[Rfam]
RNA sequence: AGUGAAGGUAGAGGUGCAAACUUCAUCAGUAAAAGCUUGGAGAAAGAUGAGUUUCCGUGAAAAGCUUUGAAAGGGAAUGUUUGCCGAAGAAAAGGAAGUCUCAUUUCUUUCUUUUCUGGUCCUGUAUUGAAUAAAUACUGGAUUGUCAAGACAGCGCCGUCUUGGAGAGCUAUCUCACUG
Numbered sequence: 001a002g003u004g005a006a007g008g009u010a011g012a013g014g015u016g017c018a019a020a021c022u023u024c025a026u027c028a029g030u031a032a033a034a035g036c037u038u039g040g041a042g043a044a045a046g047a048u049g050a051g052u053u054u055c056c057g058u059g060a061a062a063a064g065c066u067u068u069g070a071a072a073g074g075g076a077a078u079g080u081u082u083g084c085c086g087a088a089g090a091a092a093a094g095g096a097a098g099u100c101u102c103a104u105u106u107c108u109u110u111c112u113u114u115u116c117u118g119g120u121c122c123u124g125u126a127u128u129g130a131a132u133a134a135a136u137a138c139u140g141g142a143u144u145g146u147c148a149a150g151a152c153a154g155c156g157c158c159g160u161c162u163u164g165g166a167g168a169g170c171u172a173u174c175u176c177a178c179u180g
Stems, first nucleotide, its partner, number of pairs: 006175006016084006022077003032068007088117011118144005124138005146165007
Dot-bracket structure: .....((((((....(((((((((.......(((((((.......................)))))))......))).))))))...(((((((((((........)))))))))))(((((.(((((.....))))).))))).(((((((......)))))))....)))))).....